[Rfam]
RNA sequence: UAUCAUGAUGAGCAUUUAUUUUACUGCGUUAUCGUAUUGACGGGGGCUGUUUAAGUACAGUCUGUUUUAUAAUCUAUAUUCAUUUAUAUUUUAUAUUUCUUACCGAGGAAAUUGACUCUUAACAGAUUUGCUGAAA
Numbered sequence: 001u002a003u004c005a006u007g008a009u010g011a012g013c014a015u016u017u018a019u020u021u022u023a024c025u026g027c028g029u030u031a032u033c034g035u036a037u038u039g040a041c042g043g044g045g046g047c048u049g050u051u052u053a054a055g056u057a058c059a060g061u062c063u064g065u066u067u068u069a070u071a072a073u074c075u076a077u078a079u080u081c082a083u084u085u086a087u088a089u090u091u092u093a094u095a096u097u098u099c100u101u102a103c104c105g106a107g108g109a110a111a112u113u114g115a116c117u118c119u120u121a122a123c124a125g126a127u128u129u130g131c132u133g134a135a136a
Base pairs, nucleotide, nucleotide: 009134011132012131013130014129024045025044027042028041029040030039031038047125048124049123050122051121054117055116056115058114059113060112068095069094070093071092072091075088076087077086078085096111097110098109099108100107101106
The family of this 136-nucleotide sequence from Saccharomyces cerevisiae is "Small nucleolar RNA snR68".
The family's consensus secondary structure was predicted with RNAalifold.
Gene Ontology terms of the family: RNA processing and nucleolus.
On this family, see Filipowicz et al., Acta Biochim Pol 1999: "Structure and biogenesis of small nucleolar RNAs acting as guides for ribosomal RNA modification".